Shown here is a 239-nucleotide RNA from Acidithiobacillus caldus, a member of the family "HNH endonuclease-associated RNA and ORF (HEARO) RNA". The family's RNA type in Rfam is non-coding RNA gene. On this family, see Weinberg et al., Nature 2009: "Exceptional structured noncoding RNAs revealed by bacterial metagenome analysis".
RNA sequence: GUCAACCACUCCCCCUAAGCCCUGGUGGGCUGUAGGCGGAGCUUGUGGGGAAGCUCACAGGCUCCUGGUUGACCAGGCUCAGUCCCGGAAUCCGGGGCUACGUUGGUUAGGUCAGGACACCCUGGGAUGCGUGUGCCAGUUCCAGGCUCUGUCGAGGCGGAUUAAAAGCAAGCUGGGAGUGAUGCAAGCGGUGUCCGUCUUAGAAAAAGCCUUUCCAACCUUGCCGAGGCGCACUUUAC
Number, nucleotide and partner (000 for none) at each position: 001g073002u072003c071004a070005a069006c068007c067008a066009c000010u041011c000012c038013c000014c000015c000016u000017a000018a000019g030020c029021c028022c027023u000024g000025g000026u000027g022028g021029g020030c019031u000032g000033u000034a000035g000036g000037c000038g012039g000040a000041g010042c061043u060044u059045g058046u057047g056048g055049g054050g000051a000052a000053g000054c049055u048056c047057a046058c045059a044060g043061g042062c000063u000064c000065c000066u008067g007068g006069u005070u004071g003072a002073c001074c000075a000076g225077g224078c223079u000080c000081a099082g098083u097084c096085c095086c094087g093088g000089a000090a000091u000092c000093c087094g086095g085096g084097g083098c082099u081100a000101c000102g219103u218104u217105g216106g215107u000108u000109a212110g211111g210112u209113c000114a000115g000116g000117a152118c151119a000120c000121c146122c145123u144124g143125g142126g141127a140128u139129g235130c000131g234132u233133g232134u231135g230136c229137c228138a000139g128140u127141u126142c125143c124144a123145g122146g121147c000148u000149c000150u000151g118152u117153c000154g201155a200156g199157g198158c197159g196160g195161a194162u193163u000164a000165a000166a192167a000168g189169c188170a000171a000172g000173c000174u000175g000176g000177g000178a000179g000180u000181g000182a000183u000184g000185c000186a000187a000188g169189c168190g000191g000192u166193g162194u161195c160196c159197g158198u157199c156200u155201u154202a000203g000204a000205a000206a000207a000208a000209g112210c111211c110212u109213u000214u000215c106216c105217a104218a103219c102220c000221u000222u000223g078224c077225c076226g000227a000228g137229g136230c135231g134232c133233a132234c131235u129236u000237u000238a000239c000